RNA sequence: GGACAAUGACGACAUACAGAAAGGUCUCGUUCGGCAUACUGGUCCACAGACCAUGCUGACCAUUCUGAUAAGAUCACCACCCAUAAUCUGAUGUCC
Numbered sequence: 001g002g003a004c005a006a007u008g009a010c011g012a013c014a015u016a017c018a019g020a021a022a023g024g025u026c027u028c029g030u031u032c033g034g035c036a037u038a039c040u041g042g043u044c045c046a047c048a049g050a051c052c053a054u055g056c057u058g059a060c061c062a063u064u065c066u067g068a069u070a071a072g073a074u075c076a077c078c079a080c081c082c083a084u085a086a087u088c089u090g091a092u093g094u095c096c
Stems, first nucleotide, its partner, number of pairs: 001096004044049001
Overview
A member of the RNA family "Small nucleolar RNA Z43" from Physcomitrium patens, 96 nucleotides long. The family has 7 seed sequences and 859 matches in Rfam 15.1. By type it is a C/D-box small nucleolar RNA. The match comes from Rfam's covariance-model search (64 bits). The source organism's lineage runs through Eukaryota, Bryopsida, Funariales, Funariaceae and Physcomitrium. The literature on the family includes a 2003 paper in Nucleic Acids Res by Chen et al., "The high diversity of snoRNAs in plants: identification and comparative study of 120 snoRNA genes from Oryza sativa". Pairs were carried over by alignment from the consensus structure, which was predicted with PFOLD.